[Rfam]
RNA sequence: GGGAAACGACCCAUCUUGGUGCAGGCGAGCCAAGAAUGCGUUUUAACAACGUAUCCUUUCCACAUACUAUUUGCAUUGCACAGCGAUAGUAUGGAUGGGACAUUGGUAUUUACAGUACUAAUGCAAAUACUGUAUUUUUCUAUAUAGUGCGCAAUAUGUAGGAAUUUGCAGUUAGAUUAGACAGUAUGGGAAGUACACAUGCUGUUUAAUCCCACAAUAAAAACCCUGAGUACUUACAGGUACACUGAGGUGCAAAUCAGUGUUUUAGCCGCUUCUUUGGAGCUGUUGGG
Numbered sequence: 001g002g003g004a005a006a007c008g009a010c011c012c013a014u015c016u017u018g019g020u021g022c023a024g025g026c027g028a029g030c031c032a033a034g035a036a037u038g039c040g041u042u043u044u045a046a047c048a049a050c051g052u053a054u055c056c057u058u059u060c061c062a063c064a065u066a067c068u069a070u071u072u073g074c075a076u077u078g079c080a081c082a083g084c085g086a087u088a089g090u091a092u093g094g095a096u097g098g099g100a101c102a103u104u105g106g107u108a109u110u111u112a113c114a115g116u117a118c119u120a121a122u123g124c125a126a127a128u129a130c131u132g133u134a135u136u137u138u139u140c141u142a143u144a145u146a147g148u149g150c151g152c153a154a155u156a157u158g159u160a161g162g163a164a165u166u167u168g169c170a171g172u173u174a175g176a177u178u179a180g181a182c183a184g185u186a187u188g189g190g191a192a193g194u195a196c197a198c199a200u201g202c203u204g205u206u207u208a209a210u211c212c213c214a215c216a217a218u219a220a221a222a223a224c225c226c227u228g229a230g231u232a233c234u235u236a237c238a239g240g241u242a243c244a245c246u247g248a249g250g251u252g253c254a255a256a257u258c259a260g261u262g263u264u265u266u267a268g269c270c271g272c273u274u275c276u277u278u279g280g281a282g283c284u285g286u287u288g289g290g
Stems, first nucleotide, its partner, number of pairs: 001012003014035007036054007064092008073084002097213004101123008129172004137164010177209008225240004242263007271283004
RNA: RAGATH-15 RNA